[Rfam]
RNA sequence: UUUACCGGUUUACUCUAUAUUUUACAUUGUAGACCUUUAUUUUUAUCUUGUCAAUAGUUUUUUCAAAAAAAUAUUAGCGCUUUCAUUGCUUGUUUAACCAUUACAAUAGACAGAAACUUCAAAAUCUUCCGUUUUUUUAGGAAAACAAAGAUUUUCAGAAAUAAAAAUAUUUAAUUAUUGACAAAACCGGUUUACUAGAAUAUAAU
Dot-bracket structure: ...(.(.(.((...(((((........)))))................(....(..(((((((.((((((((.................((................)).....................)))))))).))))))).(((.((((.(....).))))..)))......)....))).).).)..............
This 206-nucleotide sequence from Streptococcus pneumoniae belongs to the Rfam family "idnO ncRNA motif". The source organism's lineage runs through Bacteria, Bacillati, Bacilli, Lactobacillales and Streptococcus. Its family is annotated with regulation of gene expression in the Gene Ontology. For this family Rfam cites "The discovery of novel noncoding RNAs in 50 bacterial genomes" (Narunsky et al., Nucleic Acids Res, 2024). Rfam's curators put it in the seed alignment. idnO ncRNA motif was reported as a strong cis regulatory motif candidate, with potential to riboswitch cis regulatory type, it have been recognised in Streptococcus species. The motif has been reported in the intergenic region between two genes: manX, a phosphotransferase system sugar transporter and idnO, gluconate 5-dehydrogenase. Pairs were carried over by alignment from the consensus structure, which is taken from published work.